[Rfam]
RNA: Mammalian CPEB3 ribozyme
Organism: Crocodylus porosus
RNA sequence: UCACAAGUUCAAGGCCAUAGCAGAAGUGGUCAAAGCACAGCCUGUUAUAUUCUCAUGAAUCUCUGAAUUCUGCU
Numbered sequence: 001u002c003a004c005a006a007g008u009u010c011a012a013g014g015c016c017a018u019a020g021c022a023g024a025a026g027u028g029g030u031c032a033a034a035g036c037a038c039a040g041c042c043u044g045u046u047a048u049a050u051u052c053u054c055a056u057g058a059a060u061c062u063c064u065g066a067a068u069u070c071u072g073c074u
Stems, first nucleotide, its partner, number of pairs: 013042003019074007026038003047062001049060004